The family of this 112-nucleotide RNA from Halosaccharopolyspora lacisalsi is "mraW RNA".
RNA sequence: GGAAGCGAGUGCCGUAAGGCCUCUGUCCGCUCGGCUCGGCCGGGCUGAUGCACCUUCCCCGGUGUCAGCAAGCCGCGAGCGGGCGGGGACCUGGCGGCACUCGUCGACGACG
Numbered sequence: 001g002g003a004a005g006c007g008a009g010u011g012c013c014g015u016a017a018g019g020c021c022u023c024u025g026u027c028c029g030c031u032c033g034g035c036u037c038g039g040c041c042g043g044g045c046u047g048a049u050g051c052a053c054c055u056u057c058c059c060c061g062g063u064g065u066c067a068g069c070a071a072g073c074c075g076c077g078a079g080c081g082g083g084c085g086g087g088g089a090c091c092u093g094g095c096g097g098c099a100c101u102c103g104u105c106g107a108c109g110a111c112g
Stems, first nucleotide, its partner, number of pairs: 008101007018091002021088013037075004044069008
The family has 45 seed sequences and 851 matches in Rfam 15.1. The match comes from Rfam's covariance-model search (54 bits). The organism belongs to Halosaccharopolyspora, within Bacteria. The family's RNA type in Rfam is cis-regulatory element.